RNA: mir-9195 microRNA precursor family
RNA sequence: AGAGGCUCUCCGUGGCUGGGGUGGAACACUUGCCUCAUUGCCAUGGCAAUGAAGCAAGCAUUCCAUCAGGCCACUCACACUGCCCGC
Dot-bracket structure: ...(((.....((((((..(((((((..(((((...(((((....)))))...)))))..))))))).)))))).......)))...